[Rfam]
RNA sequence: AUUGCUGUAACAGCCGCAGCAGAAGCACGCUCCCUGCGGCCCUGCCAGAUUCUAACGAAUCUGCAAAUUCUGCU
Numbered sequence: 001a002u003u004g005c006u007g008u009a010a011c012a013g014c015c016g017c018a019g020c021a022g023a024a025g026c027a028c029g030c031u032c033c034c035u036g037c038g039g040c041c042c043u044g045c046c047a048g049a050u051u052c053u054a055a056c057g058a059a060u061c062u063g064c065a066a067a068u069u070c071u072g073c074u
Base pairs, nucleotide, nucleotide: 013040014039015038018074019073020072021071022070023069024068025037026036027035046063047062048061049060050059051058052057

A member of the RNA family "Mammalian CPEB3 ribozyme" from Crocodylus porosus, 74 nucleotides long. Rfam describes the family as follows. The mammalian CPEB3 ribozyme is a self cleaving RNA located in the second intron of the CPEB3 gene which belongs to a family of genes regulating messenger RNA polyadenylation. This ribozyme is highly conserved and found only in mammals. The CPEB3 ribozyme is structurally and biochemically related to the human hepatitis delta virus (HDV) ribozyme and the HDV ribozyme is proposed to have arisen from the human transcriptome. A reference for the family is Salehi-Ashtiani et al. (2006), "A genomewide search for ribozymes reveals an HDV-like sequence in the human CPEB3 gene", Science. Gene Ontology term of the family: RNA nuclease activity.